[Rfam]
RNA: c-di-GMP-I-GGC riboswitch aptamer
Organism: Gemmatirosa kalamazoonensis
RNA sequence: GCUGACAACGGCAAACCCGGUGAAAACCGGGGACGCAAAGCUACGAGGCUACCGCACGCCGGACUCGCUCCAGCGUGCCACGCCAGUCGAGCCGCCAAAC
Numbered sequence: 001g002c003u004g005a006c007a008a009c010g011g012c013a014a015a016c017c018c019g020g021u022g023a024a025a026a027c028c029g030g031g032g033a034c035g036c037a038a039a040g041c042u043a044c045g046a047g048g049c050u051a052c053c054g055c056a057c058g059c060c061g062g063a064c065u066c067g068c069u070c071c072a073g074c075g076u077g078c079c080a081c082g083c084c085a086g087u088c089g090a091g092c093c094g095c096c097a098a099a100c
Stems, first nucleotide, its partner, number of pairs: 001100001003097002011036002016031006034086001040092003044089003047084003